[Rfam]
RNA sequence: GGAUCGGGAGGCCUCUGGUGGGACAGGGGCCGCGAAUUGAUCAGAACAGUCCUGUUUCAAAGAGGUGCGCUGUCGUGGCCCGACGACCUGCGUG
Number, nucleotide and partner (000 for none) at each position: 001g000002g042003a041004u040005c039006g000007g000008g000009a000010g031011g030012c029013c028014u027015c026016u025017g024018g000019u000020g000021g000022g000023a000024c017025a016026g015027g014028g013029g012030c011031c010032g000033c000034g000035a000036a000037u000038u000039g005040a004041u003042c002043a000044g000045a000046a000047c000048a000049g000050u000051c000052c000053u000054g000055u000056u000057u000058c000059a000060a000061a000062g000063a000064g000065g000066u094067g093068c092069g091070c090071u000072g087073u086074c085075g084076u000077g000078g000079c000080c000081c000082g000083a000084c075085g074086a073087c072088c000089u000090g070091c069092g068093u067094g066
Source information:
The family of this 94-nucleotide RNA sequence from Rhodobacteraceae bacterium EhC02 is "Rhodo-rpoB RNA". NCBI's taxonomy places the organism under Bacteria, Pseudomonadati, Pseudomonadota, Alphaproteobacteria, Paracoccaceae.